[Rfam]
RNA sequence: UGCUCAUCGAGAGGGGCAGAGGGACACGGCCCGCUGAAGCCCCGGCAACCCGCCACCGCACGCACGCGUCGAAAUCCGUCGACCGGCCUGUGGUGCCAACGGUGCUAAUUCCGUCCCGGUCCGAGAGUCGGCCCACCGGGGAAGAUGAGAA
Dot-bracket structure: (.((((((....(((((...(((..[[[[)))......)))))((((.((.(............................................)...))))))...(]]]]((((((..............))))))..))))))).)